A member of the RNA family "tp2" from Providencia rustigianii, 118 nucleotides long. Taxonomically the source falls in Providencia rustigianii (Bacteria, Pseudomonadota, Enterobacterales, Providencia). Pairs were carried over by alignment from the consensus structure, which was predicted with RNAalifold. The literature on the family includes a 2001 paper in Curr Biol by Rivas et al., "Computational identification of noncoding RNAs in E. coli by comparative genomics". The sequence is in the family's curated seed alignment.
[Rfam]
RNA sequence: UGUAUUCCUUAUCUGUUAUCUAUUUUAUAUGUUUAAUAUGGAGCCUAUCUUCCAGCUAUUUUGCUGUAAAAACAGCUGGAAGAUAGGCCCUGAUGUAGUUGCCGCUUUAACUCUCAGA
Numbered sequence: 001u002g003u004a005u006u007c008c009u010u011a012u013c014u015g016u017u018a019u020c021u022a023u024u025u026u027a028u029a030u031g032u033u034u035a036a037u038a039u040g041g042a043g044c045c046u047a048u049c050u051u052c053c054a055g056c057u058a059u060u061u062u063g064c065u066g067u068a069a070a071a072a073c074a075g076c077u078g079g080a081a082g083a084u085a086g087g088c089c090c091u092g093a094u095g096u097a098g099u100u101g102c103c104g105c106u107u108u109a110a111c112u113c114u115c116a117g118a
Base pairs, nucleotide, nucleotide: 002102003101004100022094023093025092040091041090043088044087045086046085047084048083049082052079053078054077055076056075059072060071061070062069